A member of the RNA family "Pseudoknot of tRNA-like structure" from Bromovirus BBMV, 118 nucleotides long. Pairs were carried over by alignment from the consensus structure, which is taken from published work.

RNA sequence: AAGAUAUCUGUACCGCCUGCUCCCCGGUGGUUUCGAUCCAUGGCUUCACGAUGUGUUGCAUAGAUGGAAGAUAUCGUGUGGUGUUGAAAAACACCACAUAGUCUCUUAGGGGAGACCA
Number, nucleotide and partner (000 for none) at each position: 001a000002a000003g075004a074005u073006a072007u071008c070009u069010g000011u000012a031013c030014c029015g028016c027017c026018u000019g000020c114021u113022c112023c111024c110025c109026g017027g016028u015029g014030g013031u012032u000033u000034c000035g000036a000037u068038c067039c066040a065041u064042g000043g059044c058045u000046u000047c055048a054049c000050g000051a000052u000053g000054u048055g047056u000057u000058g044059c043060a000061u000062a000063g000064a041065u040066g039067g038068a037069a009070g008071a007072u006073a005074u004075c003076g099077u098078g097079u096080g095081g094082u093083g092084u091085u000086g000087a000088a000089a000090a000091a084092c083093a082094c081095c080096a079097c078098a077099u076100a000101g000102u000103c000104u000105c000106u000107u000108a000109g025110g024111g023112g022113a021114g020115a000116c000117c000118a000
The source organism's lineage runs through Viruses, Riboviria, Alsuviricetes, Martellivirales and Bromovirus BBMV. The sequence is in the family's curated seed alignment.